[Rfam]
RNA sequence: GCUGCGGGUGUGUGCUUUGUGACAAUGAGAUUCGGUUCGAUAUCAUCCCCUUGUUGCAAACCUCACGCUUGCGGU
Numbered sequence: 001g002c003u004g005c006g007g008g009u010g011u012g013u014g015c016u017u018u019g020u021g022a023c024a025a026u027g028a029g030a031u032u033c034g035g036u037u038c039g040a041u042a043u044c045a046u047c048c049c050c051u052u053g054u055u056g057c058a059a060a061c062c063u064c065a066c067g068c069u070u071g072c073g074g075u
Stems, first nucleotide, its partner, number of pairs: 001075005007069006014062001016060010027049001029047003
RNA: mir-988 microRNA precursor family
Organism: Aedes aegypti